RNA sequence: GCCCUCCCUCAGCUCUACAGGAUCACACAGCCGAGUAUGUGCUUGGUAUGGUUUUUCAUGGAAGGAGGGGAAGGCCCUCUUCAUGCAUGGCAGACCUGCAAGAGGAGAUUCUCUUUUCCUAGGAGUCUGACAGUU
Numbered sequence: 001g002c003c004c005u006c007c008c009u010c011a012g013c014u015c016u017a018c019a020g021g022a023u024c025a026c027a028c029a030g031c032c033g034a035g036u037a038u039g040u041g042c043u044u045g046g047u048a049u050g051g052u053u054u055u056u057c058a059u060g061g062a063a064g065g066a067g068g069g070g071a072a073g074g075c076c077c078u079c080u081u082c083a084u085g086c087a088u089g090g091c092a093g094a095c096c097u098g099c100a101a102g103a104g105g106a107g108a109u110u111c112u113c114u115u116u117u118c119c120u121a122g123g124a125g126u127c128u129g130a131c132a133g134u135u
Stems, first nucleotide, its partner, number of pairs: 002069006013061002016058001021044002024041004077125005083120001085118001092114003099107001
Small nucleolar RNA SNORA64/SNORA10 family: a 135-nucleotide RNA sequence from Microtus ochrogaster. The family is grouped with related families in Rfam's "SNORA64 clan". It is annotated as an H/ACA-box small nucleolar RNA. The source organism's lineage runs through Eukaryota, Metazoa, Eumetazoa, Muroidea and Microtus. Rfam's curators write: This family belongs to the H/ACA class of small nucleolar RNAs (snoRNAs) which act as guides in the the modification of uridines to pseudouridines.